RNA: Plastid-ycf3 group II-D1 intron
RNA sequence: AUUCAUUCUGUGGUGUAUCCACGAUUAAUGCAGCCUUAGAUGUUUCA
Number, nucleotide and partner (000 for none) at each position: 001a000002u000003u000004c000005a000006u000007u000008c000009u000010g025011u024012g000013g022014u000015g000016u000017a000018u000019c000020c000021a000022c013023g000024a011025u010026u000027a000028a000029u000030g000031c000032a044033g043034c042035c000036u000037u000038a000039g000040a000041u000042g034043u033044u032045u000046c000047a000